[Rfam]
RNA sequence: GGCUGGCCCGACGGCAGUGGUUAUUUAUAAUUAAUUGAUGACAGUCAGUUACAGAUUCCUUUGUUCUUUCUCCACACCCACUGCUGCACCUGACUGGUCUUUU
Numbered sequence: 001g002g003c004u005g006g007c008c009c010g011a012c013g014g015c016a017g018u019g020g021u022u023a024u025u026u027a028u029a030a031u032u033a034a035u036u037g038a039u040g041a042c043a044g045u046c047a048g049u050u051a052c053a054g055a056u057u058c059c060u061u062u063g064u065u066c067u068u069u070c071u072c073c074a075c076a077c078c079c080a081c082u083g084c085u086g087c088a089c090c091u092g093a094c095u096g097g098u099c100u101u102u103u
Stems, first nucleotide, its partner, number of pairs: 001099006008092001010091001014087002016082005029065003033061002
Source information:
Shown here is a 103-nucleotide RNA from Rhinopomastus cyanomelas, a member of the family "Y RNA". Rfam's curators write: Y RNAs are components of the Ro ribonucleoprotein particle (Ro RNP), in association with Ro60 and La proteins. It is annotated as a non-coding RNA gene. The literature on the family includes a 2000 paper in Nucleic Acids Res by Teunissen et al., "Conserved features of Y RNAs: a comparison of experimentally derived secondary structures".